[Rfam]
Nucleotides: 498
Base pairs, nucleotide, nucleotide: 004020005019006018007017008016022488023487024486025485026484027483028482029481030480031479033378034377035376036375037374038373039372040371041370042336048334049333050332052331053330054329057077058076059075061074062073063072064071065070084289085288086287094213095212096211097210098209099208100207103206104205108202109201110200111199112198113197114196116150117149118148119147125140126139127138128137129136130135155181156180157179158178159177160176161175162174164173165172188194215261216260217259222252223251224250227249228248229247230246231245232244233243234242264286265285266284267283268279269278270277271276291312292311293310294309295308314325315324316323317322342368344367345366346365350363351362352361353360354359381399382398383397384396385395386394387393404424405423406422407421408420409419410418431477432476433475434474435473436472444471445470446469447468453460454459
Number, partner (000 for none) and nucleotide at each position: 001000a002000c003000u004020c005019c006018g007017g008016u009000u010000g011000a012000u013000c014000c015000u016008g017007c018006c019005g020004g021000a022488c023487c024486c025485g026484a027483c028482u029481g030480c031479u032000a033378u034377c035376g036375g037374a038373u039372u040371g041370g042336g043000a044000c045000u046000a047000a048334g049333c050332c051000a052331u053330g054329c055000g056000a057077g058076u059075c060000a061074a062073c063072u064071c065070c066000g067000c068000a069000a070065g071064g072063g073062g074061u075059g076058g077057c078000g079000c080000a081000c082000g083000g084289c085288u086287c087000a088000g089000u090000a091000a092000c093000a094213c095212g096211u097210a098209g099208u100207c101000a102000a103206c104205c105000u106000a107000c108202c109201c110200u111199g112198g113197g114196g115000a116150c117149g118148g119147g120000g121000a122000u123000a124000a125140c126139c127138u128137c129136g130135g131000g132000a133000a134000a135130c136129u137128g138127a139126g140125g141000c142000u143000a144000a145000a146000c147119c148118c149117c150116g151000a152000u153000a154000g155181g156180c157179c158178a159177u160176g161175g162174c163000u164173c165172c166000u167000g168000g169000a170000a171000u172165g173164g174162g175161c176160u177159a178158u179157g180156g181155c182000u183000g184000a185000a186000a187000u188194c189000u190000a191000u192000a193000u194188g195000g196114c197113c198112c199111c200110a201109g202108g203000a204000u205104g206103g207100g208099a209098c210097u211096g212095c213094g214000g215261c216260c217259g218000a219000u220000c221000a222252g223251g224250u225000u226000g227249u228248u229247g230246g231245u232244g233243g234242g235000g236000u237000a238000a239000u240000g241000g242234c243233c244232c245231a246230c247229c248228a249227a250224g251223c252222c253000u254000a255000u256000a257000a258000c259217c260216g261215g262000u263000g264286c265285g266284g267283g268279c269278u270277c271276u272000g273000a274000g275000a276271g277270g278269a279268g280000g281000a282000g283267c284266c285265c286264g287086g288085a289084g290000a291312u292311g293310g294309g295308c296000a297000c298000u299000g300000a301000g302000a303000c304000a305000a306000g307000g308295g309294c310293c311292c312291a313000g314325g315324u316323c317322c318000u319000a320000u321000g322317g323316g324315g325314c326000g327000c328000a329054g330053c331052a332050g333049g334048c335000g336042c337000g338000a339000a340000a341000c342368c343000u344367c345366c346365g347000c348000a349000a350363u351362g352361g353360g354359c355000g356000a357000a358000a359354g360353c361352c362351c363350g364000a365346c366345g367344g368342g369000g370041u371040c372039a373038g374037u375036c376035c377034g378033a379000g380000u381399g382398g383397u384396u385395c386394c387393c388000g389000c390000u391000g392000a393387g394386g395385g396384a397383a398382c399381c400000u401000u402000u403000u404424g405423c406422c407421a408420g409419c410418u411000g412000u413000a414000a415000a416000c417000a418410g419409g420408c421407u422406g423405g424404c425000g426000a427000a428000u429000a430000a431477g432476g433475g434474g435473u436472g437000g438000g439000c440000a441000a442000g443000u444471u445470u446469g447468g448000u449000g450000u451000c452000a453460g454459c455000c456000g457000c458000c459454g460453c461000g462000g463000u464000a465000a466000u467000a468447c469446c470445a471444g472436c473435a474434c475433c476432c477431c478000g479031a480030g481029u482028g483027g484026u485025c486024g487023g488022g489000a490000c491000g492000a493000u494000u495000a496000u497000u498000g